The family of this 54-nucleotide RNA sequence from Albula goreensis is "UnaL2 LINE 3' element". The family's RNA type in Rfam is cis-regulatory element. The base pairs follow the family's consensus structure, which is taken from published work. Rfam describes the family as follows. The eel long interspersed element (LINE) UnaL2 and its partner short interspersed element (SINE) share a conserved 3' tail containing a stem-loop that is critical for their retrotransposition. Presumably, the first step of retrotransposition is the recognition of their 3' tails by UnaL2-encoded reverse transcriptase. For this family Rfam cites "Solution structure of an RNA stem-loop derived from the 3' conserved region of eel LINE UnaL2" (Baba et al., RNA, 2004).
RNA sequence: AGCCUAAUCAACUGUACGUCACUUUGGAUAAAAGCGUCUGCUAAAUAACUGUAA
Numbered sequence: 001a002g003c004c005u006a007a008u009c010a011a012c013u014g015u016a017c018g019u020c021a022c023u024u025u026g027g028a029u030a031a032a033a034g035c036g037u038c039u040g041c042u043a044a045a046u047a048a049c050u051g052u053a054a
Stems, first nucleotide, its partner, number of pairs: 013043001014041003020036001022034004